A member of the RNA family "mir-2253 microRNA precursor family" from Pristionchus pacificus, 56 nucleotides long. Its family is annotated with RISC complex and miRNA-mediated post-transcriptional gene silencing in the Gene Ontology. Rfam's curators put it in the seed alignment. The organism belongs to Pristionchus, within Eukaryota. The family's consensus secondary structure was predicted with RNAalifold.

[Rfam]
RNA sequence: CGGAGUUUCAACAGGCCAUACAACUCGCGUAUGCAUGGCACUGCUGAAACUUCGAA
Numbered sequence: 001c002g003g004a005g006u007u008u009c010a011a012c013a014g015g016c017c018a019u020a021c022a023a024c025u026c027g028c029g030u031a032u033g034c035a036u037g038g039c040a041c042u043g044c045u046g047a048a049a050c051u052u053c054g055a056a
Base pairs, nucleotide, nucleotide: 001054002053003052004051005050006049007048008047009046010045012043013042014041015039016038017037018036019035021033022032